This 223-nucleotide RNA from Ferroacidibacillus organovorans belongs to the Rfam family "T-box leader". The family's consensus secondary structure is taken from published work. The literature on the family includes a 1994 paper in J Bacteriol by Grundy et al., "Interaction between the acceptor end of tRNA and the T box stimulates antitermination in the Bacillus subtilis tyrS gene: a new role for the discriminator base". The source organism's lineage runs through Bacteria, Bacillati, Caryophanales, Alicyclobacillaceae and Ferroacidibacillus.

[Rfam]
RNA sequence: CGAACAGCGAAGAUGAAGAGAGUAGCCGCAGGCGAUCGCUCAGAAAACCGGUGGGUGAUGCGAACCGGUCGAUGACUGCGCGUGAAGUACACUUCGGAGCUAUCUGGGCGAAACGUGAAGUAGUCCAGGUCGGUCGCGCAAUCGCGCCGCCGUUAUGACAAGGAAGGUGGAGGGUCGCGCCCUCUUCCAGGGUGGUACCGCGAGGCUGUGUCUCGUCCCUGGG
Number, nucleotide and partner (000 for none) at each position: 001c000002g000003a000004a000005c000006a000007g100008c099009g000010a000011a000012g000013a000014u000015g095016a094017a093018g092019a000020g000021a000022g000023u000024a000025g083026c082027c080028g079029c078030a077031g000032g000033c000034g000035a000036u072037c071038g070039c000040u000041c000042a000043g000044a000045a000046a000047a069048c068049c067050g066051g065052u064053g000054g000055g000056u000057g000058a000059u000060g000061c000062g000063a000064a052065c051066c050067g049068g048069u047070c038071g037072a036073u000074g000075a000076c000077u030078g029079c028080g027081c000082g026083u025084g000085a000086a000087g000088u000089a000090c000091a000092c018093u017094u016095c015096g000097g000098a000099g008100c007101u000102a000103u129104c128105u127106g126107g125108g124109c123110g000111a000112a000113a000114c000115g000116u000117g000118a000119a000120g000121u000122a000123g109124u108125c107126c106127a105128g104129g103130u000131c152132g151133g150134u000135c000136g000137c000138g000139c000140a000141a000142u000143c000144g000145c000146g000147c000148c000149g000150c133151c132152g131153u000154u000155a000156u000157g000158a000159c000160a000161a000162g000163g000164a000165a000166g000167g000168u000169g000170g184171a183172g182173g181174g180175u179176c000177g000178c000179g175180c174181c173182c172183u171184c170185u000186u000187c000188c000189a220190g219191g218192g217193u000194g000195g000196u000197a000198c000199c000200g216201c215202g214203a213204g212205g000206c000207u000208g000209u000210g000211u000212c204213u203214c202215g201216u200217c192218c191219c190220u189221g000222g000223g000